Group I catalytic intron: a 329-nucleotide sequence from Chlorella variabilis. Its family is annotated with Group I intron splicing in the Gene Ontology. Pairs were carried over by alignment from the consensus structure, which is taken from published work.
RNA sequence: ACAUCACAAUCAUCUGUUUGGAGUGGUAGUUUUUAACAGGCGGCGUGAAAAGCGUGUCACCGCCUAGUCUUGGGCCUUUCGGCUCAAGGCAAGACCGUCAAAUUGCCUGGACGUCCUGCCAGGCCAUCGAUACCACCCUGCCCGGGAAACCGAGGCAGCGGAACCCUGGGGAAACUCGGGGGCAUGGUAAAAAUUCGAUGGCUAGGGACGAUGGGCAGCCAAGUCCUACGGGCAUGUCAUGCCUAUGGAUGCAGUUCACAGACUAAAUGUCGGUCGGUCAUCGUUGGCAGAUGGCUUGAGAUAUAGUCGGGCCGCUCCGAGAGGAGAGC
Numbered sequence: 001a002c003a004u005c006a007c008a009a010u011c012a013u014c015u016g017u018u019u020g021g022a023g024u025g026g027u028a029g030u031u032u033u034u035a036a037c038a039g040g041c042g043g044c045g046u047g048a049a050a051a052g053c054g055u056g057u058c059a060c061c062g063c064c065u066a067g068u069c070u071u072g073g074g075c076c077u078u079u080c081g082g083c084u085c086a087a088g089g090c091a092a093g094a095c096c097g098u099c100a101a102a103u104u105g106c107c108u109g110g111a112c113g114u115c116c117u118g119c120c121a122g123g124c125c126a127u128c129g130a131u132a133c134c135a136c137c138c139u140g141c142c143c144g145g146g147a148a149a150c151c152g153a154g155g156c157a158g159c160g161g162a163a164c165c166c167u168g169g170g171g172a173a174a175c176u177c178g179g180g181g182g183c184a185u186g187g188u189a190a191a192a193a194u195u196c197g198a199u200g201g202c203u204a205g206g207g208a209c210g211a212u213g214g215g216c217a218g219c220c221a222a223g224u225c226c227u228a229c230g231g232g233c234a235u236g237u238c239a240u241g242c243c244u245a246u247g248g249a250u251g252c253a254g255u256u257c258a259c260a261g262a263c264u265a266a267a268u269g270u271c272g273g274u275c276g277g278u279c280a281u282c283g284u285u286g287g288c289a290g291a292u293g294g295c296u297u298g299a300g301a302u303a304u305a306g307u308c309g310g311g312c313c314g315c316u317c318c319g320a321g322a323g324g325a326g327a328g329c
Stems, first nucleotide, its partner, number of pairs: 001024002004021003093275005099269002104217006114208004218255002223250004231243005259309001261308005277295006315326004